A member of the RNA family "Bacterial small signal recognition particle RNA" from Microbacterium allomyrinae, 97 nucleotides long. The match comes from Rfam's covariance-model search (54 bits). The family is grouped with related families in Rfam's "SRP clan". Rfam classes the family as a non-coding RNA gene. Its family is annotated with signal recognition particle, plasma membrane targeting and SRP-dependent cotranslational protein targeting to membrane, signal sequence recognition in the Gene Ontology.
RNA sequence: UUCAGCUCUCCGCGAGGCGGCAUCCAGGCCAAUUCCCCCAGGACGGAAACGUAGCAAGGGUAACCAGGCUCUGCCGGGUUCGCGGAGAGUCUUAAUC
Dot-bracket structure: ....((((((((((...(((((.((.((......(((.....(((....))).....)))...)).))...)))))....)))))))))).......